Neisseria metabolic switch regulator b (RcoF1/NgncR163): an 89-nucleotide RNA sequence from Kingella negevensis. A search with the family's covariance model found it, with a score of 66 bits. Sibling sRNA described and independently named in three publications. NgncR163 is N. gonorrhoeae while the others are N. meningitidis RNAs. RcoF1 stands for: RNA regulating colonization factor 1. NmsRb_RcoF1_NgncR163 was shown to be the predominant sibling. They are tandemly arranged, structurally nearly identical and and share 70% sequence identity. They translationally down-regulate genes involved in basic metabolic processes including tricarboxylic acid cycle enzymes and amino acid uptake and degradation. The targets include: fumC, sdhC, gltA, sucC, prpB and prpC Their expression is under the control of RelA. Furthermore, they interact with Hfq and target mRNA that encodes putative colonization factor of the human nasopharynx (PrpB). The base pairs follow the family's consensus structure, which was predicted with RNAfold. Rfam 15.1 lists 65 matches to the family in 50 species.
RNA sequence: GCAUUCAAACGCGAUAGCGAUUGAAUAUUUCUCCUCUAUUUCUCCUUCGUAGACUUUGCGCAUAUCCCUCCAUGGAUAUGCGCCUUUUU
Numbered sequence: 001g002c003a004u005u006c007a008a009a010c011g012c013g014a015u016a017g018c019g020a021u022u023g024a025a026u027a028u029u030u031c032u033c034c035u036c037u038a039u040u041u042c043u044c045c046u047u048c049g050u051a052g053a054c055u056u057u058g059c060g061c062a063u064a065u066c067c068c069u070c071c072a073u074g075g076a077u078a079u080g081c082g083c084c085u086u087u088u089u
Stems, first nucleotide, its partner, number of pairs: 003026006010019002035053005058083010